[Rfam]
RNA sequence: GGGGUCCUGGCCUCCAGCACCAUGGGCACAGCCACUCCUCUGUUCCUGUGACUUCGGGGCAAAGAGCAACUGGCUAUUUCUACGCUCAGUGUUCAGAGACCAGUGAGCACUAAGAAUGGUUUAUAGCCUGACACUG
Numbered sequence: 001g002g003g004g005u006c007c008u009g010g011c012c013u014c015c016a017g018c019a020c021c022a023u024g025g026g027c028a029c030a031g032c033c034a035c036u037c038c039u040c041u042g043u044u045c046c047u048g049u050g051a052c053u054u055c056g057g058g059g060c061a062a063a064g065a066g067c068a069a070c071u072g073g074c075u076a077u078u079u080c081u082a083c084g085c086u087c088a089g090u091g092u093u094c095a096g097a098g099a100c101c102a103g104u105g106a107g108c109a110c111u112a113a114g115a116a117u118g119g120u121u122u123a124u125a126g127c128c129u130g131a132c133a134c135u136g
Base pairs, nucleotide, nucleotide: 004060005059006058007057008056009055010054022049023048024047025046072128073127074126080119081118082117085114086113090109091108092107093106094105095104
Shown here is a 136-nucleotide RNA sequence from Octodon degus, a member of the family "Small nucleolar RNA SNORA43". About the family: ACA43 is a member of the H/ACA class of snoRNA that guide the sites of modification of uridines to pseudouridines. The match comes from Rfam's covariance-model search (122 bits). The organism belongs to Octodon, within Eukaryota. Rfam classes the family as an H/ACA-box small nucleolar RNA. Clan: SNORA17 clan. Gene Ontology terms of the family: nucleolus and RNA processing. The family's consensus secondary structure was predicted with RNAfold. The family has 21 seed sequences and 492 matches in Rfam 15.1.